[Rfam]
RNA sequence: GGUCUGUGAUGUUUGAGAUUGUCCGUACCAUCUGAGAGUUUAUCUCGUUGAUGAGCUGUAUGCUCUUGUUUCUGAGGCUU
Numbered sequence: 001g002g003u004c005u006g007u008g009a010u011g012u013u014u015g016a017g018a019u020u021g022u023c024c025g026u027a028c029c030a031u032c033u034g035a036g037a038g039u040u041u042a043u044c045u046c047g048u049u050g051a052u053g054a055g056c057u058g059u060a061u062g063c064u065c066u067u068g069u070u071u072c073u074g075a076g077g078c079u080u
Base pairs, nucleotide, nucleotide: 001079002078003077004076
This 80-nucleotide sequence from Brassica rapa belongs to the Rfam family "small nucleolar RNA snoR117". A reference for the family is Chen and Wu (2009), "Mining small RNA sequencing data: a new approach to identify small nucleolar RNAs in Arabidopsis", Nucleic Acids Res. Its family is annotated with RNA processing and nucleolus in the Gene Ontology. The base pairs follow the family's consensus structure, which was predicted with RNAalifold.